The family of this 214-nucleotide RNA from Ancylobacter novellus is "permuted transfer-messenger RNA".
Rfam links the family to the GO term RNA catabolic process.
[Rfam]
RNA sequence: GGCGAUAAACGGUUGUCGGAAUAAACCCAUCGGACCCGGGGGCAGUACCCGGCGCCUCCACCGGAACCCAUCCUUCAGGGUGGGCUGCGGCGGGGGCGAAACAGGAUCGACGGGGGCGUAAAGGGCAUUCUUUCGCUCGGCAUGGUACCGCCGUCAUCGGACCAAACUUAUAGUUGCCAACGACAACUAUGCUCCGGUUGCUCAGGCCGCGUGA
Numbered sequence: 001g002g003c004g005a006u007a008a009a010c011g012g013u014u015g016u017c018g019g020a021a022u023a024a025a026c027c028c029a030u031c032g033g034a035c036c037c038g039g040g041g042g043c044a045g046u047a048c049c050c051g052g053c054g055c056c057u058c059c060a061c062c063g064g065a066a067c068c069c070a071u072c073c074u075u076c077a078g079g080g081u082g083g084g085c086u087g088c089g090g091c092g093g094g095g096g097c098g099a100a101a102c103a104g105g106a107u108c109g110a111c112g113g114g115g116g117c118g119u120a121a122a123g124g125g126c127a128u129u130c131u132u133u134c135g136c137u138c139g140g141c142a143u144g145g146u147a148c149c150g151c152c153g154u155c156a157u158c159g160g161a162c163c164a165a166a167c168u169u170a171u172a173g174u175u176g177c178c179a180a181c182g183a184c185a186a187c188u189a190u191g192c193u194c195c196g197g198u199u200g201c202u203c204a205g206g207c208c209g210c211g212u213g214a
Base pairs, nucleotide, nucleotide: 001137002136003135004134005133014127015126016125017124026116027115028114030113031112032111036052037051038050039049040048053098054097055096056095057094058093059092138153139152140151141150
Notes: The organism belongs to Ancylobacter novellus, within Bacteria. For this family Rfam cites "BRUCE: a program for the detection of transfer-messenger RNA genes in nucleotide sequences" (Laslett et al., Nucleic Acids Res, 2002). It is annotated as a non-coding RNA gene.